[Rfam]
Description:
Shown here is a 352-nucleotide part of an RNA from Candidatus Cardinium hertigii, a member of the family "Bacterial small subunit ribosomal RNA".
RNA sequence: GGUUUAAAGGGUGCGUAGGCGGUUUAUUAAGUCAGUUGUGAAAUCUUAGUGCUUAACGCUAAAACUGCAAUUGAUACUGAUAGACUUGAGUUAAGAAGAGGUAAGUAGAAUUUAUGGUGUAGUAGUGAAAUGCUUAGAUAUCAUAAGGAAUACCAAUGGCGUAGGCAGCUUACUGGUCUUUAACUGACGCUGAGGCACGAAAGCGUGGGGAGCAAACAGGAUUAGAUACCCUGGUAGUCCACGCCGUAAACGAUGAUCACUCGAUAUACGCGAUACAAUCGUGUGUGUCCAAGCGAAAGCGUUAAGUGAUCCACCUGGGGAGUAUACCCGCAAGGGUGAAACUCAAAGGAAU
Numbered sequence: 001g002g003u004u005u006a007a008a009g010g011g012u013g014c015g016u017a018g019g020c021g022g023u024u025u026a027u028u029a030a031g032u033c034a035g036u037u038g039u040g041a042a043a044u045c046u047u048a049g050u051g052c053u054u055a056a057c058g059c060u061a062a063a064a065c066u067g068c069a070a071u072u073g074a075u076a077c078u079g080a081u082a083g084a085c086u087u088g089a090g091u092u093a094a095g096a097a098g099a100g101g102u103a104a105g106u107a108g109a110a111u112u113u114a115u116g117g118u119g120u121a122g123u124a125g126u127g128a129a130a131u132g133c134u135u136a137g138a139u140a141u142c143a144u145a146a147g148g149a150a151u152a153c154c155a156a157u158g159g160c161g162u163a164g165g166c167a168g169c170u171u172a173c174u175g176g177u178c179u180u181u182a183a184c185u186g187a188c189g190c191u192g193a194g195g196c197a198c199g200a201a202a203g204c205g206u207g208g209g210g211a212g213c214a215a216a217c218a219g220g221a222u223u224a225g226a227u228a229c230c231c232u233g234g235u236a237g238u239c240c241a242c243g244c245c246g247u248a249a250a251c252g253a254u255g256a257u258c259a260c261u262c263g264a265u266a267u268a269c270g271c272g273a274u275a276c277a278a279u280c281g282u283g284u285g286u287g288u289c290c291a292a293g294c295g296a297a298a299g300c301g302u303u304a305a306g307u308g309a310u311c312c313a314c315c316u317g318g319g320g321a322g323u324a325u326a327c328c329c330g331c332a333a334g335g336g337u338g339a340a341a342c343u344c345a346a347a348g349g350a351a352u
Stems, first nucleotide, its partner, number of pairs: 001315003009312001011198004016192001018191003022085007030078002032074009046062006089185003093180004100174007107151001111147008122133003159166002203244006212238002217233004255311006263289012293300002317344003326337004